[Rfam]
RNA sequence: AAGACUAUACUUUCAGUGAUCAUUUCUAUAGUUUCUGACUUGAGAAAUGUGUUUCUAAAGUGUUUGGUCUCGCUAACCACGAUGAUGAGCUGUGAUAUUACCUUCUGAGCGUGAAGCUGACAGAGAAUAAUGGUUCAAUUCAUAUGUUCUCUGUCAUUGAUGAAUGUUCAUUGAUUCCUAGUGGAGCAUUGAGGAAGGGAAUAUGAUCAGAGUGGU
Numbered sequence: 001a002a003g004a005c006u007a008u009a010c011u012u013u014c015a016g017u018g019a020u021c022a023u024u025u026c027u028a029u030a031g032u033u034u035c036u037g038a039c040u041u042g043a044g045a046a047a048u049g050u051g052u053u054u055c056u057a058a059a060g061u062g063u064u065u066g067g068u069c070u071c072g073c074u075a076a077c078c079a080c081g082a083u084g085a086u087g088a089g090c091u092g093u094g095a096u097a098u099u100a101c102c103u104u105c106u107g108a109g110c111g112u113g114a115a116g117c118u119g120a121c122a123g124a125g126a127a128u129a130a131u132g133g134u135u136c137a138a139u140u141c142a143u144a145u146g147u148u149c150u151c152u153g154u155c156a157u158u159g160a161u162g163a164a165u166g167u168u169c170a171u172u173g174a175u176u177c178c179u180a181g182u183g184g185a186g187c188a189u190u191g192a193g194g195a196a197g198g199g200a201a202u203a204u205g206a207u208c209a210g211a212g213u214g215g216u
Stems, first nucleotide, its partner, number of pairs: 001041003005037001007034001009032003015027002018024001051064001055062001076216005095204005101198006109167003119155004125149004130143004170190001172188002175185003
Dot-bracket structure: (((.(.(.(((...((.(.....).))..))).)..).))).........(...(......).)...........(((((..............(((((.((((((..(((.......((((..((((.((((......))))..))))..)))).........)))..(.((.(((.....))).)).)..)))))).))))).......)))))
Annotation
Rfam assigns this 216-nucleotide RNA sequence from Dicentrarchus labrax to the family "Small nucleolar RNA U3". About the family: Small nucleolar RNAs (snoRNAs) are involved in the processing and modification of rRNA in the nucleolus. There are two main classes of snoRNAs: the box C/D class, and the box H/ACA class. U3 snoRNA is a member of the box C/D class. Indeed, the box C/D element is a subset of the six short sequence elements found in all U3 snoRNAs, namely boxes A, A', B, C, C', and D. The U3 snoRNA secondary structure is characterised by a small 5' domain (with boxes A and A'), and a larger 3' domain (with boxes B, C, C', and D), the two domains being linked by a single-stranded hinge. Clan: U3 clan. The organism belongs to Dicentrarchus, within Eukaryota. A reference for the family is Zwieb (1997), "The uRNA database", Nucleic Acids Res. It is annotated as a C/D-box small nucleolar RNA. It scores 155 bits against the family's covariance model.